The record is a 61-nucleotide RNA from Orthopestivirus antilocaprae, which matches "Pestivirus 3' UTR SLI" in Rfam. A reference for the family is Kokkonos et al. (2020), "Evolutionary selection of pestivirus variants with altered or no microRNA dependency", Nucleic Acids Res.
RNA sequence: AGCCGAAUGGAGGGAACCCGACGUCCUUUGUAGGACUAGGAAAAAUCUUCCACUAGGCCCC
Numbered sequence: 001a002g003c004c005g006a007a008u009g010g011a012g013g014g015a016a017c018c019c020g021a022c023g024u025c026c027u028u029u030g031u032a033g034g035a036c037u038a039g040g041a042a043a044a045a046u047c048u049u050c051c052a053c054u055a056g057g058c059c060c061c
Stems, first nucleotide, its partner, number of pairs: 002058003006054001008052006018040002023036005

Pairs were carried over by alignment from the consensus structure.